[Rfam]
RNA sequence: GUGGGAGGAAGCUCAUUGUAGAGGUUACAUGCAGAGUGCUCGUCACUCGACCAAUCACCUCGGGGAAGGUCUGAGACAUGAGCCAAUUGUUGCCCUAGCAGGGUAUCACCUGAUCCGGGUGAGUGGGUGCACAGAAACUAUGGGCCGAGUGUGUUGUUCUAACAGGAGAAGCUAGAUGGUGUUAAUUUCAGCGCCACUAGUGGAUGUAGACUCACUGCCUUGGAAUCACCCACGGCUGGCGAAUGAGUGCGAUGGAUGAGGUGGAGCACAGCUCCAGAACCCAAUUCAGACUACUCUCCUCCCAC
Numbered sequence: 001g002u003g004g005g006a007g008g009a010a011g012c013u014c015a016u017u018g019u020a021g022a023g024g025u026u027a028c029a030u031g032c033a034g035a036g037u038g039c040u041c042g043u044c045a046c047u048c049g050a051c052c053a054a055u056c057a058c059c060u061c062g063g064g065g066a067a068g069g070u071c072u073g074a075g076a077c078a079u080g081a082g083c084c085a086a087u088u089g090u091u092g093c094c095c096u097a098g099c100a101g102g103g104u105a106u107c108a109c110c111u112g113a114u115c116c117g118g119g120u121g122a123g124u125g126g127g128u129g130c131a132c133a134g135a136a137a138c139u140a141u142g143g144g145c146c147g148a149g150u151g152u153g154u155u156g157u158u159c160u161a162a163c164a165g166g167a168g169a170a171g172c173u174a175g176a177u178g179g180u181g182u183u184a185a186u187u188u189c190a191g192c193g194c195c196a197c198u199a200g201u202g203g204a205u206g207u208a209g210a211c212u213c214a215c216u217g218c219c220u221u222g223g224a225a226u227c228a229c230c231c232a233c234g235g236c237u238g239g240c241g242a243a244u245g246a247g248u249g250c251g252a253u254g255g256a257u258g259a260g261g262u263g264g265a266g267c268a269c270a271g272c273u274c275c276a277g278a279a280c281c282c283a284a285u286u287c288a289g290a291c292u293a294c295u296c297u298c299c300u301c302c303c304a305c
Stems, first nucleotide, its partner, number of pairs: 001305004007299003012260006021061004034048005071289005081237004091105005106122006123233007143219003262276006
Rfam assigns this 305-nucleotide sequence from Gadus morhua to the family "Nuclear RNase P". Ribonuclease P (RNase P) is a ubiquitous endoribonuclease, found in archaea, bacteria and eukarya as well as chloroplasts and mitochondria. Its best characterised activity is the generation of mature 5'-ends of tRNAs by cleaving the 5'-leader elements of precursor-tRNAs. Cellular RNase Ps are ribonucleoproteins. RNA from bacterial RNase Ps retains its catalytic activity in the absence of the protein subunit, i.e. it is a ribozyme. Isolated eukaryotic and archaeal RNase P RNA has not been shown to retain its catalytic function, but is still essential for the catalytic activity of the holoenzyme. Although the archaeal and eukaryotic holoenzyme s have a much greater protein content than the bacterial ones, the RNA cores from all the three lineages are homologous -- helices corresponding to P1, P2, P3, P4, and P10/11 are common to all cellular RNase P RNAs. Yet, there is considerable sequence variation, particularly among the eukaryotic RNAs.